[Rfam]
RNA: Potassium channel RNA editing signal
RNA sequence: GUAGGUUAUGGGGAUAUGUAUCCCAUGACCGUGGGAGGUAAGAUCGUGGGCUCUCUGUGCGCCAUUGCUGGGGUCCUCACUAUCGCCCUGCCGGUGCCAGUCAUCGUCUCCAAC
Numbered sequence: 001g002u003a004g005g006u007u008a009u010g011g012g013g014a015u016a017u018g019u020a021u022c023c024c025a026u027g028a029c030c031g032u033g034g035g036a037g038g039u040a041a042g043a044u045c046g047u048g049g050g051c052u053c054u055c056u057g058u059g060c061g062c063c064a065u066u067g068c069u070g071g072g073g074u075c076c077u078c079a080c081u082a083u084c085g086c087c088c089u090g091c092c093g094g095u096g097c098c099a100g101u102c103a104u105c106g107u108c109u110c111c112a113a114c
Stems, first nucleotide, its partner, number of pairs: 001114002004111002008107004013102003018097004037077002040074001049063003